[Rfam]
Source information
Rfam assigns this 205-nucleotide sequence from Oryza barthii to the family "MIR812 microRNA precursor family".
RNA sequence: AAGGUUUGACGCCGUUGACUUUUUACCACAUGUUUGACCGUUCGUCUUAUUCCAAAAAUUUAAGUAAUUAUUAAUUCUUUUCCUAUCAUUUAAUUCAUUGCUAAAUAUAUUUUUAUGUAGGCAUAUAAUUUUACAUAUUUCACAAAAGUUUUUAAAUAAGACGAACGGUCAAACAUGUGCUAAAAAGUCAACGGUAUCAAACAUU
Number, nucleotide and partner (000 for none) at each position: 001a000002a000003g000004g000005u000006u000007u000008g000009a000010c000011g000012c000013c000014g000015u000016u000017g000018a000019c000020u000021u000022u000023u000024u000025a000026c000027c179028a178029c177030a176031u175032g174033u173034u172035u171036g170037a169038c168039c167040g166041u165042u164043c163044g162045u161046c160047u159048u158049a157050u156051u000052c000053c000054a000055a000056a000057a000058a000059u000060u000061u000062a000063a000064g000065u000066a000067a000068u000069u000070a000071u000072u000073a000074a000075u000076u000077c000078u000079u000080u000081u000082c000083c000084u000085a000086u000087c000088a000089u000090u000091u000092a000093a000094u000095u000096c000097a000098u000099u000100g000101c000102u000103a000104a000105a000106u000107a000108u000109a000110u000111u000112u000113u000114u000115a000116u000117g000118u000119a000120g000121g000122c000123a000124u000125a000126u000127a000128a000129u000130u000131u000132u000133a000134c000135a000136u000137a000138u000139u000140u000141c000142a000143c000144a000145a000146a000147a000148g000149u000150u000151u000152u000153u000154a000155a000156a050157u049158a048159a047160g046161a045162c044163g043164a042165a041166c040167g039168g038169u037170c036171a035172a034173a033174c032175a031176u030177g029178u028179g027180c000181u000182a000183a000184a000185a000186a000187g000188u000189c000190a000191a000192c000193g000194g000195u000196a000197u000198c000199a000200a000201a000202c000203a000204u000205u000